[Rfam]
RNA sequence: AACCCCCCGUGCGGCGGUAUCUCACUGAACUCCCCCAGGGCCGGAAGGCAGCAAGGGCAGGUGGGCUCUUCCGGGUGCACGGGGGGCCUCU
Numbered sequence: 001a002a003c004c005c006c007c008c009g010u011g012c013g014g015c016g017g018u019a020u021c022u023c024a025c026u027g028a029a030c031u032c033c034c035c036c037a038g039g040g041c042c043g044g045a046a047g048g049c050a051g052c053a054a055g056g057g058c059a060g061g062u063g064g065g066c067u068c069u070u071c072c073g074g075g076u077g078c079a080c081g082g083g084g085g086g087c088c089u090c091u
Stems, first nucleotide, its partner, number of pairs: 003086009012075001015073003019069001021065006032057003040049003